RNA sequence: CUCUGACACCCUCCACGACGGAUCGUCCGGCACGUACCUGCCGGUGAAGGGAAUGGAUC
Numbered sequence: 001c002u003c004u005g006a007c008a009c010c011c012u013c014c015a016c017g018a019c020g021g022a023u024c025g026u027c028c029g030g031c032a033c034g035u036a037c038c039u040g041c042c043g044g045u046g047a048a049g050g051g052a053a054u055g056g057a058u059c
Stems, first nucleotide, its partner, number of pairs: 009051004014046002027044006
Description: A member of the RNA family "msiK RNA" from Cellulomonas fimi, 59 nucleotides long. Pairs were carried over by alignment from the consensus structure, which is taken from published work. Rfam classes the family as a cis-regulatory element. It scores 62 bits against the family's covariance model.